[Rfam]
RNA sequence: AUAAAAGUGUUGCUGGAACGGAGGAACCACUAUUUGGGGCUAAUCUCGCAAAGGGAGUCUUUGGAAACAGAGUGACCAAGACAAUGAGAAGAGCAUCUCUCAGCUCUCGCCCGUCAGCUAACUUCGUAGGCAUUGAGAGGAGGCUGA
Numbered sequence: 001a002u003a004a005a006a007g008u009g010u011u012g013c014u015g016g017a018a019c020g021g022a023g024g025a026a027c028c029a030c031u032a033u034u035u036g037g038g039g040c041u042a043a044u045c046u047c048g049c050a051a052a053g054g055g056a057g058u059c060u061u062u063g064g065a066a067a068c069a070g071a072g073u074g075a076c077c078a079a080g081a082c083a084a085u086g087a088g089a090a091g092a093g094c095a096u097c098u099c100u101c102a103g104c105u106c107u108c109g110c111c112c113g114u115c116a117g118c119u120a121a122c123u124u125c126g127u128a129g130g131c132a133u134u135g136a137g138a139g140g141a142g143g144c145u146g147a
Stems, first nucleotide, its partner, number of pairs: 018127006028036002037112003045088004091106004